[Rfam]
RNA sequence: CCAGGGUGAGGUUCUGUCCUACACUCAGGCUGUGGCUAUGGAACAGUCAGUGCAUCACAGAACUUGGUCCUGGC
Numbered sequence: 001c002c003a004g005g006g007u008g009a010g011g012u013u014c015u016g017u018c019c020u021a022c023a024c025u026c027a028g029g030c031u032g033u034g035g036c037u038a039u040g041g042a043a044c045a046g047u048c049a050g051u052g053c054a055u056c057a058c059a060g061a062a063c064u065u066g067g068u069c070c071u072g073g074c
Stems, first nucleotide, its partner, number of pairs: 004070004009065008022052004028048004